[Rfam]
Rfam assigns this 67-nucleotide RNA sequence from Pipistrellus kuhlii to the family "mir-9256 microRNA precursor family".
Pairs were carried over by alignment from the consensus structure, which was predicted with RNAalifold.
The family has 8 seed sequences and 31,772 matches in Rfam 15.1.
Lineage of the source: Eukaryota > Vertebrata > Eutheria > Vespertilionidae > Pipistrellus.

RNA sequence: AUAUAUACUAAGUAGCCAGAUUAUUAUGAUCUCUGAAUGCAUAAUAAUCUGGCUACUCAGUGUGUGU
Numbered sequence: 001a002u003a004u005a006u007a008c009u010a011a012g013u014a015g016c017c018a019g020a021u022u023a024u025u026a027u028g029a030u031c032u033c034u035g036a037a038u039g040c041a042u043a044a045u046a047a048u049c050u051g052g053c054u055a056c057u058c059a060g061u062g063u064g065u066g067u
Base pairs, nucleotide, nucleotide: 004064005063006062007061008060009059011057012056013055014054015053016052017051019049020048021047022046023045024044025043026042027041028040